[Rfam]
RNA sequence: GAUGCGGUUGCUCACUUACUUUCCCUCUUAUUCUAAUCGCAUCGCGGCUG
Numbered sequence: 001g002a003u004g005c006g007g008u009u010g011c012u013c014a015c016u017u018a019c020u021u022u023c024c025c026u027c028u029u030a031u032u033c034u035a036a037u038c039g040c041a042u043c044g045c046g047g048c049u050g
Stems, first nucleotide, its partner, number of pairs: 001043010
S4-Bacteroidia ribosomal protein leader: a 50-nucleotide RNA sequence. Rfam classes the family as a cis-regulatory leader. On this family, see Eckert and Weinberg, BMC Microbiol 2020: "Discovery of 20 novel ribosomal leader candidates in bacteria and archaea".